[Rfam]
RNA sequence: AAGAAGCAGUGAGUCAAAGUCAUGAGACUGUCGUGCUUGCACGAGCAGGCACAUGACCUUGACGAACGCUCAAACAUGAGCAAGUAGCGCAAUAGCGCGGAUUGCGAAUGUUUGGAGCAUGGCGGGAGCGAAGCGUAGCCAUGCGGAGCUUUUG
Numbered sequence: 001a002a003g004a005a006g007c008a009g010u011g012a013g014u015c016a017a018a019g020u021c022a023u024g025a026g027a028c029u030g031u032c033g034u035g036c037u038u039g040c041a042c043g044a045g046c047a048g049g050c051a052c053a054u055g056a057c058c059u060u061g062a063c064g065a066a067c068g069c070u071c072a073a074a075c076a077u078g079a080g081c082a083a084g085u086a087g088c089g090c091a092a093u094a095g096c097g098c099g100g101a102u103u104g105c106g107a108a109u110g111u112u113u114g115g116a117g118c119a120u121g122g123c124g125g126g127a128g129c130g131a132a133g134c135g136u137a138g139c140c141a142u143g144c145g146g147a148g149c150u151u152u153u154g
Base pairs, nucleotide, nucleotide: 002153003152004151005150006149007148010066013063016060017059019057020056021055022054023053024052026050028048029047030046031044032043033042034041035040070115071114072113073112074111075110076109077108080105081104082103083102087098088097089096090095117144118143119142120141121140122139123138128134129133